[Rfam]
RNA sequence: GCAUCGCCCGGCUAAUCAGCCGGGCGUGGAUUGAAAC
Numbered sequence: 001g002c003a004u005c006g007c008c009c010g011g012c013u014a015a016u017c018a019g020c021c022g023g024g025c026g027u028g029g030a031u032u033g034a035a036a037c
Stems, first nucleotide, its partner, number of pairs: 005026009